[Rfam]
RNA sequence: CAAGCCUCUCGUGCGGCGUGCAUCUCGUGAACCUCCCCAGGGCCGGAAGGCAGCAAGGAUAAGCGGGCUCUGACGGGUGCACGGGGGGCCCUUUA
Number, nucleotide and partner (000 for none) at each position: 001c000002a000003a000004g089005c088006c087007u086008c085009u084010c083011g082012u081013g080014c077015g000016g000017c075018g074019u073020g000021c000022a000023u000024c067025u066026c065027g064028u063029g000030a000031a000032c000033c000034u059035c058036c057037c000038c000039a000040g000041g000042g051043c050044c049045g000046g000047a000048a000049g044050g043051c042052a000053g000054c000055a000056a000057g036058g035059a034060u000061a000062a000063g028064c027065g026066g025067g024068c000069u000070c000071u000072g000073a019074c018075g017076g000077g014078u000079g000080c013081a012082c011083g010084g009085g008086g007087g006088g005089c004090c000091c000092u000093u000094u000095a000
The family of this 95-nucleotide sequence from Paractinoplanes atraurantiacus is "Bacterial small signal recognition particle RNA". The match comes from Rfam's covariance-model search (62 bits). Rfam's curators write: The signal recognition particle (SRP) is a universally conserved ribonucleoprotein involved in the co-translational targeting of proteins to membranes. NCBI's taxonomy places the organism under Bacteria, Bacillati, Actinomycetota, Actinomycetes, Paractinoplanes. By type it is a non-coding RNA gene.